[Rfam]
Histone 3' UTR stem-loop: a 46-nucleotide RNA sequence from Photinus pyralis. It scores 36 bits against the family's covariance model. The base pairs follow the family's consensus structure, which is taken from published work.

RNA sequence: CAAUCGGUUCUAUUCAGAACCACAUAAUGAUAAUAAAAGAAAUUCG
Numbered sequence: 001c002a003a004u005c006g007g008u009u010c011u012a013u014u015c016a017g018a019a020c021c022a023c024a025u026a027a028u029g030a031u032a033a034u035a036a037a038a039g040a041a042a043u044u045c046g
Stems, first nucleotide, its partner, number of pairs: 006021006